[Rfam]
Rfam assigns this 100-nucleotide RNA from Olea europaea to the family "MIR390 microRNA precursor family". Lineage of the source: Eukaryota > Mesangiospermae > Gunneridae > Lamiales > Olea europaea. On this family, see Gustafson et al., Nucleic Acids Res 2005: "ASRP: the Arabidopsis Small RNA Project Database". The family's consensus secondary structure was predicted with WAR. It scores 104 bits against the family's covariance model.
RNA sequence: UAGAAGAAUCUUUAAAGCUCAGGAGGGAUAGCGCCGUGAGGAUCUAUAUAUUUUACAUCAUUAGUGGCGCUAUCUAUCCUGAGUUUCAUGGGUUGUUCUU
Numbered sequence: 001u002a003g004a005a006g007a008a009u010c011u012u013u014a015a016a017g018c019u020c021a022g023g024a025g026g027g028a029u030a031g032c033g034c035c036g037u038g039a040g041g042a043u044c045u046a047u048a049u050a051u052u053u054u055a056c057a058u059c060a061u062u063a064g065u066g067g068c069g070c071u072a073u074c075u076a077u078c079c080u081g082a083g084u085u086u087c088a089u090g091g092g093u094u095g096u097u098c099u100u
Stems, first nucleotide, its partner, number of pairs: 010091001016085009026075010